Description: Shown here is a 277-nucleotide sequence from Nannospalax galili, a member of the family "Mason-Pfizer monkey virus packaging signal". The source organism's lineage runs through Eukaryota, Bilateria, Gnathostomata, Sarcopterygii and Nannospalax. The family's RNA type in Rfam is cis-regulatory element. Its family is annotated with viral genome packaging in the Gene Ontology. About the family: This family represents a group of sequences that are related to the Mason-Pfizer monkey virus (MPMV) packaging signal.
[Rfam]
RNA sequence: UGGCGCCCAACGUGGGGCUGGAUACGGAGGAUCCAGUGUGGGAAGAAGAUGGCCCCCAAGGAACGCGUUCCGCAACAAUUCUUCACUCUGGACACGCCGCGGGAACCUGCCUCGGCUACAACCAGAAGUAAGUAUCGGCGUCUGAUUAUGGGACAAGAAUUAAGCAGGCACGAAAUUUAUGUUCGGCAAUUGCAGGAUGCCUUACGGAUGCGAGGAGUAAAGGUUAAAAUAGAGGAUUUAUUUCGGUUCUUUGAAUUUAUUAAGGAAACCUGUCCUU
Numbered sequence: 001u002g003g004c005g006c007c008c009a010a011c012g013u014g015g016g017g018c019u020g021g022a023u024a025c026g027g028a029g030g031a032u033c034c035a036g037u038g039u040g041g042g043a044a045g046a047a048g049a050u051g052g053c054c055c056c057c058a059a060g061g062a063a064c065g066c067g068u069u070c071c072g073c074a075a076c077a078a079u080u081c082u083u084c085a086c087u088c089u090g091g092a093c094a095c096g097c098c099g100c101g102g103g104a105a106c107c108u109g110c111c112u113c114g115g116c117u118a119c120a121a122c123c124a125g126a127a128g129u130a131a132g133u134a135u136c137g138g139c140g141u142c143u144g145a146u147u148a149u150g151g152g153a154c155a156a157g158a159a160u161u162a163a164g165c166a167g168g169c170a171c172g173a174a175a176u177u178u179a180u181g182u183u184c185g186g187c188a189a190u191u192g193c194a195g196g197a198u199g200c201c202u203u204a205c206g207g208a209u210g211c212g213a214g215g216a217g218u219a220a221a222g223g224u225u226a227a228a229a230u231a232g233a234g235g236a237u238u239u240a241u242u243u244c245g246g247u248u249c250u251u252u253g254a255a256u257u258u259a260u261u262a263a264g265g266a267a268a269c270c271u272g273u274c275c276u277u
Base pairs, nucleotide, nucleotide: 006030007029012025013024014023036050037049039046085129086128087127088125089124098114099113101111102110135156137154141152142151143150144149161204162203163202164200165199166198211253212252213251214250215249216248217247218246221239222238223237224236225235262277263276264275265274266273